The record is a 132-nucleotide RNA from Oryctolagus cuniculus, which matches "Small nucleolar RNA SNORA51" in Rfam.
The base pairs follow the family's consensus structure, which was predicted with PFOLD.
The source organism's lineage runs through Eukaryota, Chordata, Theria, Eutheria and Oryctolagus.

Nucleotides: 132
Base pairs, nucleotide, nucleotide: 002059003058004057005056006055007054008053020043021042022041026037028035029034072124073123074122075121076120077119086110087109088108090106091105092104093103094102095101
Number, partner (000 for none) and nucleotide at each position: 001000g002059g003058c004057c005056u006055c007054c008053u009000u010000g011000u012000g013000u014000u015000u016000a017000c018000c019000a020043c021042a022041g023000u024000c025000u026037g027000u028035g029034u030000u031000c032000u033000u034029a035028c036000c037026c038000u039000g040000a041022c042021u043020g044000u045000g046000u047000a048000g049000a050000a051000a052000g053008a054007g055006g056005a057004g058003g059002c060000a061000g062000a063000g064000u065000a066000g067000a068000c069000c070000u071000u072124c073123c074122c075121u076120a077119u078000a079000u080000a081000c082000a083000c084000c085000c086110c087109a088108g089000c090106u091105c092104a093103g094102g095101u096000c097000u098000u099000c100000u101095g102094c103093c104092u105091g106090g107000u108088u109087u110086g111000u112000a113000u114000u115000g116000u117000g118000a119077a120076u121075g122074g123073g124072g125000g126000u127000a128000c129000a130000u131000g132000g
Rfam classes the family as an H/ACA-box small nucleolar RNA. ACA51 is a member of the H/ACA class of snoRNA that guide the sites of modification of uridines to pseudouridines. Rfam links the family to the GO terms RNA processing and nucleolus.